[Rfam]
RNA sequence: AUUAUUCACUCUCCCUCAAGGGCUUCUGUUGGUUUUCUGGUCGACCGAAUGACCAAGUACCUACACGGAAGACCUUAGGGAGAGUGGAAAAUAC
Numbered sequence: 001a002u003u004a005u006u007c008a009c010u011c012u013c014c015c016u017c018a019a020g021g022g023c024u025u026c027u028g029u030u031g032g033u034u035u036u037c038u039g040g041u042c043g044a045c046c047g048a049a050u051g052a053c054c055a056a057g058u059a060c061c062u063a064c065a066c067g068g069a070a071g072a073c074c075u076u077a078g079g080g081a082g083a084g085u086g087g088a089a090a091a092u093a094c
Base pairs, nucleotide, nucleotide: 006087007086008085009084010083011082012081013080014079015078018076019075020074021073023071024070025069026068027067028066029065